[Rfam]
RNA sequence: UCUGGGAAAUGAUGAUAAGAUAUAUCAAUAUAUUCAUAGGCAUUUAUGCAAUGCUGAACAAAAAUAUUUGCACGUCAGUCUGACCCCAGC
Numbered sequence: 001u002c003u004g005g006g007a008a009a010u011g012a013u014g015a016u017a018a019g020a021u022a023u024a025u026c027a028a029u030a031u032a033u034u035c036a037u038a039g040g041c042a043u044u045u046a047u048g049c050a051a052u053g054c055u056g057a058a059c060a061a062a063a064a065u066a067u068u069u070g071c072a073c074g075u076c077a078g079u080c081u082g083a084c085c086c087c088a089g090c
Stems, first nucleotide, its partner, number of pairs: 002089005
This 90-nucleotide RNA sequence from Microthlaspi erraticum belongs to the Rfam family "Small nucleolar RNA Z122".
The base pairs follow the family's consensus structure, which was predicted with PFOLD.
The literature on the family includes a 2003 paper in Nucleic Acids Res by Chen et al., "The high diversity of snoRNAs in plants: identification and comparative study of 120 snoRNA genes from Oryza sativa".
Rfam links the family to the GO terms RNA processing and nucleolus.
It scores 63 bits against the family's covariance model.